[Rfam]
RNA sequence: UGCGAAGCGUAGUUCCCCAACCUGGAGCUACUUUACCAUAUUCCAAAUUC
Numbered sequence: 001u002g003c004g005a006a007g008c009g010u011a012g013u014u015c016c017c018c019a020a021c022c023u024g025g026a027g028c029u030a031c032u033u034u035a036c037c038a039u040a041u042u043c044c045a046a047a048u049u050c
Base pairs, nucleotide, nucleotide: 006034007033009031010030011029012028013027014026015025016024

Plastid-psbN 5UTR RNA: a 50-nucleotide RNA from Castanea mollissima. The match comes from Rfam's covariance-model search (53 bits). Lineage of the source: Eukaryota > Magnoliopsida > rosids > Fagaceae > Castanea. The family's consensus secondary structure was predicted with LocARNA.